This 253-nucleotide sequence from Coriobacterium glomerans belongs to the Rfam family "raiA RNA". Lineage of the source: Bacteria > Coriobacteriales > Coriobacteriaceae > Coriobacterium > Coriobacterium glomerans.

RNA sequence: UCCUCCCAGGCUGUGGUUGCGGAUCGGGUCUUUUCCCGGUCCAAGUCCAUGAUAGACGCGGUCAAAGGGAUCCACGUAAGCGCGCUCAUCAGCGCGCGAUCAUGGCGCGUCCUAGAGGUAAGUCGCACCGUCCGUUCCAGAAGAGGGCAUGCGCCCCGCGGACGAGCGGGUCAGUCGUGACGAGCGCCCCGGCGCUCCGAGCAAACGCCCCGGUGCGCAGGUGUGGGGUCAAAGACCAGGUCAGCUGGGAGGA
Numbered sequence: 001u002c003c004u005c006c007c008a009g010g011c012u013g014u015g016g017u018u019g020c021g022g023a024u025c026g027g028g029u030c031u032u033u034u035c036c037c038g039g040u041c042c043a044a045g046u047c048c049a050u051g052a053u054a055g056a057c058g059c060g061g062u063c064a065a066a067g068g069g070a071u072c073c074a075c076g077u078a079a080g081c082g083c084g085c086u087c088a089u090c091a092g093c094g095c096g097c098g099a100u101c102a103u104g105g106c107g108c109g110u111c112c113u114a115g116a117g118g119u120a121a122g123u124c125g126c127a128c129c130g131u132c133c134g135u136u137c138c139a140g141a142a143g144a145g146g147g148c149a150u151g152c153g154c155c156c157c158g159c160g161g162a163c164g165a166g167c168g169g170g171u172c173a174g175u176c177g178u179g180a181c182g183a184g185c186g187c188c189c190c191g192g193c194g195c196u197c198c199g200a201g202c203a204a205a206c207g208c209c210c211c212g213g214u215g216c217g218c219a220g221g222u223g224u225g226g227g228g229u230c231a232a233a234g235a236c237c238a239g240g241u242c243a244g245c246u247g248g249g250a251g252g253a
Base pairs, nucleotide, nucleotide: 001253002252003251004250005249006248007247008246009245011244012243013242014238015237016236017235018234049224050223051222052062055111056110057109058108059107060106071105072104076100103231124217125216126215127214128213129164130163131162132161133160134159135158168210169209170208171207177202178201184195185194186193
Rfam's curators put it in the seed alignment.